[Rfam]
RNA: U4 spliceosomal RNA
RNA sequence: AUCUUUGCGCUUGGGGCAAUGAUGCAGCUAGUAGUGAGGUUCUAACCAAAAAACGUCCAUUGCUGGUUGAAAACUAUUUCCAAACCCCCUAUUGGGUCUGGGUUCACCCUAGGCCUUUGAGAAUUUCUGGAAGGGCUUCCUCAUGGGCAAAGCC
Numbered sequence: 001a002u003c004u005u006u007g008c009g010c011u012u013g014g015g016g017c018a019a020u021g022a023u024g025c026a027g028c029u030a031g032u033a034g035u036g037a038g039g040u041u042c043u044a045a046c047c048a049a050a051a052a053a054c055g056u057c058c059a060u061u062g063c064u065g066g067u068u069g070a071a072a073a074c075u076a077u078u079u080c081c082a083a084a085c086c087c088c089c090u091a092u093u094g095g096g097u098c099u100g101g102g103u104u105c106a107c108c109c110u111a112g113g114c115c116u117u118u119g120a121g122a123a124u125u126u127c128u129g130g131a132a133g134g135g136c137u138u139c140c141u142c143a144u145g146g147g148c149a150a151a152g153c154c
Stems, first nucleotide, its partner, number of pairs: 021057004029050001038047003089121002094116007101108002134154004